[Rfam]
RNA sequence: UGGAUUUUUAGCUCUUUAAGUAUUUGUCCAGUAGGUUUUCUCCCAAAGAGAAAGCCCAU
Numbered sequence: 001u002g003g004a005u006u007u008u009u010a011g012c013u014c015u016u017u018a019a020g021u022a023u024u025u026g027u028c029c030a031g032u033a034g035g036u037u038u039u040c041u042c043c044c045a046a047a048g049a050g051a052a053a054g055c056c057c058a059u
Stems, first nucleotide, its partner, number of pairs: 034056009
U7 small nuclear RNA: a 59-nucleotide sequence from Erpetoichthys calabaricus. The match comes from Rfam's covariance-model search (56 bits). Animal histone pre-mRNAs are spliced by a different mechanism than nuclear pre-mRNAs and self-splicing introns. This processing involves the U7 snRNP, which contains only one RNA species: U7.